A member of the RNA family "FMN riboswitch aptamer (RFN element)" from Oceanobacillus limi, 145 nucleotides long. The source organism's lineage runs through Bacteria, Bacillati, Bacilli, Bacillaceae and Oceanobacillus. The family's consensus secondary structure is taken from published work. A search with the family's covariance model found it, with a score of 118 bits.

[Rfam]
RNA sequence: GUAUUCCUUCGGGGUAGGGUGUGAUUCCCAACCGGCGGUGAUGAAGCUAAAGCUUCUUAGUCCGUGACCCGUAUCGUUAUACGAUGCGGUGGAUCUGGUGAAAAUCCAGAGCCGACAGUUAAAGUCUGGAUGGGAGAAGGAAUUU
Numbered sequence: 001g002u003a004u005u006c007c008u009u010c011g012g013g014g015u016a017g018g019g020u021g022u023g024a025u026u027c028c029c030a031a032c033c034g035g036c037g038g039u040g041a042u043g044a045a046g047c048u049a050a051a052g053c054u055u056c057u058u059a060g061u062c063c064g065u066g067a068c069c070c071g072u073a074u075c076g077u078u079a080u081a082c083g084a085u086g087c088g089g090u091g092g093a094u095c096u097g098g099u100g101a102a103a104a105u106c107c108a109g110a111g112c113c114g115a116c117a118g119u120u121a122a123a124g125u126c127u128g129g130a131u132g133g134g135a136g137a138a139g140g141a142a143u144u145u
Base pairs, nucleotide, nucleotide: 003143004142005141006140007139008138009137010136017029018028019027031125032124033114034113035065036064037063038062060112061111069089070088094110095109096108097107098106116128117127118126